[Rfam]
Shown here is an 83-nucleotide RNA sequence from Balaeniceps rex, a member of the family "mir-128 microRNA precursor family". The base pairs follow the family's consensus structure, which was predicted with RNAalifold.

RNA sequence: ACAUGGCUGGAAGGGGGGCCGUUACACUGUAAGAGAGUGAGUAGCAGGUCUCACAGUGAACCGGUCUCUUUUCCUGCUGUGUC
Numbered sequence: 001a002c003a004u005g006g007c008u009g010g011a012a013g014g015g016g017g018g019c020c021g022u023u024a025c026a027c028u029g030u031a032a033g034a035g036a037g038u039g040a041g042u043a044g045c046a047g048g049u050c051u052c053a054c055a056g057u058g059a060a061c062c063g064g065u066c067u068c069u070u071u072u073c074c075u076g077c078u079g080u081g082u083c
Stems, first nucleotide, its partner, number of pairs: 006077002009074002015068007025058006033052003